The family of this 149-nucleotide sequence from Arctia plantaginis is "U12 minor spliceosomal RNA". The family's RNA type in Rfam is spliceosomal small nuclear RNA. It scores 96 bits against the family's covariance model.
[Rfam]
RNA sequence: GUGCCUCAAUCUAUUGAGUAAGGAAAUUAUUGGGCCUUGGUAACUCUUGGCUAUGUCCUAUUAGGGCGAACGUUUUUUUGAAGGGUACAGGUCGUCCCCUUGAACUGGUCACCUACUUUGUGACUGGUUUGGGUGAAGCGAUCUGCCUU
Numbered sequence: 001g002u003g004c005c006u007c008a009a010u011c012u013a014u015u016g017a018g019u020a021a022g023g024a025a026a027u028u029a030u031u032g033g034g035c036c037u038u039g040g041u042a043a044c045u046c047u048u049g050g051c052u053a054u055g056u057c058c059u060a061u062u063a064g065g066g067c068g069a070a071c072g073u074u075u076u077u078u079u080g081a082a083g084g085g086u087a088c089a090g091g092u093c094g095u096c097c098c099c100u101u102g103a104a105c106u107g108g109u110c111a112c113c114u115a116c117u118u119u120g121u122g123a124c125u126g127g128u129u130u131g132g133g134u135g136a137a138g139c140g141a142u143c144u145g146c147c148u149u
Stems, first nucleotide, its partner, number of pairs: 004023003008019001033052004039046001054068005082149005089144007098133002102130005108124005